[Rfam]
RNA sequence: UUGAAGGGUUAUAUAGAUGGGUCAAAUGAUAGAGCAACGUCUUGAAGGGCUCUCCCUUAGUCGAAUAGAACUUGAUUUAGUAAGGAUAAAAGUGUUAUAAGCUUGAUGAAAAGGUGUUAGAAUUUACCGUAACAGUAUUUAGGCUGACGAAAAUCUACCCGAUGGGGUGUUGUAAAUCAUAAUGCUUGGGCUUAAUGA
Number, nucleotide and partner (000 for none) at each position: 001u000002u000003g000004a000005a000006g000007g000008g000009u000010u000011a000012u000013a000014u000015a000016g000017a000018u000019g052020g051021g050022u049023c048024a000025a000026a000027u000028g000029a000030u000031a043032g042033a000034g040035c000036a000037a000038c000039g000040u034041c000042u032043u031044g000045a000046a000047g000048g023049g022050c021051u020052c019053u000054c190055c189056c188057u000058u000059a000060g000061u106062c105063g104064a103065a098066u097067a096068g095069a000070a093071c092072u091073u090074g000075a000076u000077u000078u000079a000080g000081u000082a000083a000084g000085g000086a000087u000088a000089a000090a073091a072092g071093u070094g000095u068096u067097a066098u065099a000100a000101g000102c000103u064104u063105g062106a061107u000108g000109a000110a000111a000112a000113g186114g185115u184116g183117u182118u000119a000120g000121a000122a177123u176124u175125u174126a173127c172128c149129g148130u147131a000132a000133c000134a000135g144136u143137a000138u000139u000140u000141a000142g000143g136144c135145u000146g000147a130148c129149g128150a000151a000152a000153a171154u000155c169156u000157a168158c167159c166160c165161g000162a000163u000164g000165g160166g159167g158168u157169g155170u000171u153172g127173u126174a125175a124176a123177u122178c000179a000180u000181a000182a117183u116184g115185c114186u113187u000188g056189g055190g054191c000192u000193u000194a000195a000196u000197g000198a000
RNA: Group II catalytic intron D1-D4-5
Organism: Metabacillus harenarius